The record is a 116-nucleotide RNA from Pediculus humanus, which matches "U4atac minor spliceosomal RNA" in Rfam. Clan: U4 clan. The family's consensus secondary structure is taken from published work. The family has 61 seed sequences and 1,648 matches in Rfam 15.1. Lineage of the source: Eukaryota > Ecdysozoa > Allotriocarida > Eumetabola > Pediculus humanus. The family's RNA type in Rfam is spliceosomal small nuclear RNA. About the family: U4atac is an essential component of the minor U12-type spliceosome complex which is required for removal of the rarer class of eukaryotic introns (AT-AC, U12-type). The sequence is in the family's curated seed alignment.
RNA sequence: ACCUUCCUUGUCUGUGGGAGUUCGACGUUGCAAUGAUCGUUUAGUGAGCUCGUCGUGCUAACACAAUUAAUUACGUCAUCGUACCCGAUUAUAAAUCGAGUACAAUUUUUGAAGCU
Numbered sequence: 001a002c003c004u005u006c007c008u009u010g011u012c013u014g015u016g017g018g019a020g021u022u023c024g025a026c027g028u029u030g031c032a033a034u035g036a037u038c039g040u041u042u043a044g045u046g047a048g049c050u051c052g053u054c055g056u057g058c059u060a061a062c063a064c065a066a067u068u069a070a071u072u073a074c075g076u077c078a079u080c081g082u083a084c085c086c087g088a089u090u091a092u093a094a095a096u097c098g099a100g101u102a103c104a105a106u107u108u109u110u111g112a113a114g115c116u
Stems, first nucleotide, its partner, number of pairs: 005019004020058002023055005030049002038044001081103004086098005